[Rfam]
RNA sequence: AAUAAAUGAUGAAAAAUGUUUCGGUCCCAAUUGAUAUCUAAUGAUAAUACAUUGUUCUGAUAUU
Dot-bracket structure: ((((........................................................))))
The record is a 64-nucleotide sequence from Monodelphis domestica, which matches "Small nucleolar RNA SNORD73" in Rfam. The source organism's lineage runs through Eukaryota, Metazoa, Sarcopterygii, Metatheria and Monodelphis. The literature on the family includes a 1998 paper in Gene by Rebane et al., "A novel snoRNA (U73) is encoded within the introns of the human and mouse ribosomal protein S3a genes". Pairs were carried over by alignment from the consensus structure, which was predicted with PFOLD. Its family is annotated with nucleolus and RNA processing in the Gene Ontology. The family has 25 seed sequences and 769 matches in Rfam 15.1. The family's RNA type in Rfam is C/D-box small nucleolar RNA.